The family of this 85-nucleotide RNA sequence from Yoonia tamlensis is "Glycine riboswitch aptamer".

RNA sequence: ACAACGACAUCGGGAGAACCAGUUCACUGGUGCCGAAGGAGCAACCGCCCCGGAAACUCUCAGGCCAAAGGACCGCUGUCGUUUC
Numbered sequence: 001a002c003a004a005c006g007a008c009a010u011c012g013g014g015a016g017a018a019c020c021a022g023u024u025c026a027c028u029g030g031u032g033c034c035g036a037a038g039g040a041g042c043a044a045c046c047g048c049c050c051c052g053g054a055a056a057c058u059c060u061c062a063g064g065c066c067a068a069a070g071g072a073c074c075g076c077u078g079u080c081g082u083u084u085c
Base pairs, nucleotide, nucleotide: 006080007079008078009077011075012074013073019030020029021028022027032065033064034063035061036060039059040058041057045053046052